The record is a 75-nucleotide RNA from Pipistrellus kuhlii, which matches "mir-9223 microRNA precursor family" in Rfam. Lineage of the source: Eukaryota > Chordata > Euteleostomi > Mammalia > Pipistrellus. The family's consensus secondary structure was predicted with RNAalifold.

Nucleotides: 075
Base pairs, nucleotide, nucleotide: 002074003073005071006070007069008068009067010066011065012064013063014062015061016060017059019057020056022054023053025052026051027050028049029048030047031046032045033044
Number, partner (000 for none) and nucleotide at each position: 001000g002074g003073u004000g005071g006070u007069u008068c009067u010066u011065g012064g013063g014062u015061g016060a017059u018000c019057c020056a021000c022054c023053c024000c025052a026051g027050a028049a029048u030047u031046g032045g033044g034000c035000u036000c037000c038000u039000u040000c041000c042000u043000c044033u045032c046031u047030g048029g049028u050027u051026c052025u053023g054022g055000a056020u057019g058000u059017g060016u061015c062014a063013c064012u065011u066010g067009a068008g069007a070006a071005c072000c073003a074002c075000a